Overview: Rfam assigns this 76-nucleotide RNA sequence from Phormidium tenue to the family "Glutamine riboswitch aptamer (glnA leader)". The source organism's lineage runs through Bacteria, Oscillatoriophycideae, Oscillatoriaceae, Phormidium and Phormidium tenue.
[Rfam]
RNA sequence: UUCGUUCAUCUCGCUUUUUCACAGCCGAUUAAAGCGAGACGGAAGUAGGGGUUAAUAGCCCCCGAAGGAACGCGCC
Numbered sequence: 001u002u003c004g005u006u007c008a009u010c011u012c013g014c015u016u017u018u019u020c021a022c023a024g025c026c027g028a029u030u031a032a033a034g035c036g037a038g039a040c041g042g043a044a045g046u047a048g049g050g051g052u053u054a055a056u057a058g059c060c061c062c063c064g065a066a067g068g069a070a071c072g073c074g075c076c
Base pairs, nucleotide, nucleotide: 003072004071005070006069007068009039010038011037012036013035014034015033016032017031042073048063049062050061